[Rfam]
RNA sequence: GCCGGGUUGGCGGAACUGGCAGACGCGACGGUCUCAAAAACCGUUGUCCGGAAGGACGUGUGGGUUCGAGUCCCACACUCGGCA
Dot-bracket structure: (((((((..(((...........))).(((((.......)))))...............(((((.......)))))))))))).
RNA: tRNA
Organism: Nocardia seriolae